[Rfam]
RNA sequence: AUGGCGAAUGCUGGCAGGACUACAUGGUGUCGCGGGUUCAAAUCCCGCCCCACGCAAGUGGGUAGCUCAGCGGUUAGAGCACAGACUGUCUUCCGAAAUCUUGUCGUCGUGAC
Numbered sequence: 001a002u003g004g005c006g007a008a009u010g011c012u013g014g015c016a017g018g019a020c021u022a023c024a025u026g027g028u029g030u031c032g033c034g035g036g037u038u039c040a041a042a043u044c045c046c047g048c049c050c051c052a053c054g055c056a057a058g059u060g061g062g063u064a065g066c067u068c069a070g071c072g073g074u075u076a077g078a079g080c081a082c083a084g085a086c087u088g089u090c091u092u093c094c095g096a097a098a099u100c101u102u103g104u105c106g107u108c109g110u111g112a113c
Stems, first nucleotide, its partner, number of pairs: 002109006014094001016092004023084001025083002032048005049062005065080004
RNA: Y RNA-like
Organism: Sphingomonas sp. CFBP 13720